[Rfam]
RNA sequence: UGAUGCCCCUCACCCACAGCUGAAGAUCCCGGGUGGGCGAGGGAGUGUCAGGGAUC
Numbered sequence: 001u002g003a004u005g006c007c008c009c010u011c012a013c014c015c016a017c018a019g020c021u022g023a024a025g026a027u028c029c030c031g032g033g034u035g036g037g038c039g040a041g042g043g044a045g046u047g048u049c050a051g052g053g054a055u056c
Stems, first nucleotide, its partner, number of pairs: 007043005013037005025056006
Notes
Shown here is a 56-nucleotide RNA from Kryptolebias marmoratus, a member of the family "Antizyme RNA frameshifting stimulation element". The organism belongs to Kryptolebias, within Eukaryota. From the family's description: This family represents a structural element which is found in antizyme mRNA and is known to promote frameshifting. Antizyme genes have have two partially overlapping open reading frames, the second, which encodes the functional protein requires +1 translational frameshifting. This frameshift is stimulated by a pseudoknot present 3' of the frameshift site in the antizyme mRNA. The frameshifting efficiency is dependent on the level of polyamines in the cell, when the polyamine concentration is high frameshifting is more likely to occur which leads to an increase in the quantity of functional antizyme produced. The functional antizyme acts to reduce ornithine decarboxylase (ODC) activity which leads to a drop in polyamines present in the cell. Therefore, this family can be thought of as a biosensor for intracellular free polyamines. Its family is annotated with translational frameshifting in the Gene Ontology. On this family, see Ivanov et al., J Mol Biol 2004: "Identification of a new antizyme mRNA +1 frameshifting stimulatory pseudoknot in a subset of diverse invertebrates and its apparent absence in intermediate species".